[Rfam]
RNA sequence: UUUAUUGAAAUGAUGAGUUUGUUCAUGUCUCUUCUCUGACCAAUUACUGGAGAGAAUGUAAAAAAAAACUCUGAUCACUGAA
Number, nucleotide and partner (000 for none) at each position: 001u082002u081003u080004a079005u000006u000007g000008a000009a000010a000011u000012g000013a000014u000015g000016a000017g000018u000019u000020u000021g000022u000023u000024c000025a000026u000027g000028u000029c000030u000031c000032u000033u000034c000035u000036c000037u000038g000039a000040c000041c000042a000043a000044u000045u000046a000047c000048u000049g000050g000051a000052g000053a000054g000055a000056a000057u000058g000059u000060a000061a000062a000063a000064a000065a000066a000067a000068a000069c000070u000071c000072u000073g000074a000075u000076c000077a000078c000079u004080g003081a002082a001

Background: This 82-nucleotide sequence from Astyanax mexicanus belongs to the Rfam family "Small nucleolar RNA SNORD111". Lineage of the source: Eukaryota > Opisthokonta > Eumetazoa > Otophysi > Astyanax. It is annotated as a C/D-box small nucleolar RNA. Its family is annotated with RNA processing and nucleolus in the Gene Ontology.